[Rfam]
Nucleotides: 279
Base pairs, nucleotide, nucleotide: 006030007029008028012025013024014023036050038048089130090129091127092126098121101117102116103115104114105113137158139156141155143154144153145152146151163206164205165204166202167201214254215253216252217251218250219249223241224240225239226238227237264279267276269274
Number, partner (000 for none) and nucleotide at each position: 001000u002000g003000g004000c005000g006030c007029c008028c009000a010000a011000c012025g013024u014023g015000g016000g017000g018000c019000u020000g021000g022000a023014u024013a025012c026000u027000g028008g029007g030006g031000g032000a033000c034000a035000a036050c037000a038048u039000g040000a041000g042000g043000g044000u045000c046000c047000g048038a049000c050036g051000a052000c053000g054000a055000a056000g057000g058000a059000a060000a061000g062000a063000a064000g065000g066000g067000g068000u069000g070000c071000a072000c073000a074000c075000c076000c077000g078000a079000u080000c081000a082000a083000a084000c085000a086000a087000u088000a089130c090129u091127u092126c093000a094000g095000a096000g097000a098121c099000a100000u101117c102116g103115c104114a105113g106000u107000a108000g109000c110000c111000u112000g113105c114104u115103g116102u117101g118000a119000c120000c121098g122000a123000g124000c125000c126092g127091a128000c129090a130089g131000g132000u133000a134000a135000g136000u137158u138000g139156g140000u141155c142000g143154u144153u145152c146151a147000a148000u149000c150000a151146u152145g153144g154143g155141g156139c157000a158137a159000g160000a161000a162000u163206u164205g165204a166202g167201u168000c169000a170000g171000c172000a173000u174000c175000a176000g177000a178000a179000a180000u181000a182000u183000g184000u185000a186000a187000u188000a189000c190000a191000g192000u193000u194000a195000a196000a197000a198000g199000a200000a201167g202166c203000u204165u205164u206163a207000c208000a209000g210000g211000c212000a213000a214254g215253a216252g217251g218250a219249g220000u221000a222000a223241a224240g225239g226238u227237u228000a229000c230000a231000a232000c233000u234000g235000a236000a237227g238226a239225u240224u241223u242000a243000u244000u245000u246000c247000a248000u249219u250218u251217u252216u253215u254214u255000g256000a257000u258000u259000u260000u261000g262000u263000g264279a265000a266000a267276g268000a269274c270000a271000u272000c273000u274269g275000c276267c277000c278000a279264u
The family of this 279-nucleotide sequence from Nannospalax galili is "Mason-Pfizer monkey virus packaging signal". About the family: This family represents a group of sequences that are related to the Mason-Pfizer monkey virus (MPMV) packaging signal. The base pairs follow the family's consensus structure, which was predicted with PFOLD.